[Rfam]
RNA sequence: AAAACGGCCCUUCUUAGGGCCACCAAGUUUCCCUAAAAAAAAGAAU
Numbered sequence: 001a002a003a004a005c006g007g008c009c010c011u012u013c014u015u016a017g018g019g020c021c022a023c024c025a026a027g028u029u030u031c032c033c034u035a036a037a038a039a040a041a042a043g044a045a046u
Stems, first nucleotide, its partner, number of pairs: 006021006

The record is a 46-nucleotide sequence from Brassicogethes aeneus, which matches "Histone 3' UTR stem-loop" in Rfam. Taxonomically the source falls in Brassicogethes (Eukaryota, Opisthokonta, Allotriocarida, Endopterygota). A reference for the family is Zhang et al. (2014), "Molecular mechanisms for the regulation of histone mRNA stem-loop-binding protein by phosphorylation", Proc Natl Acad Sci U S A.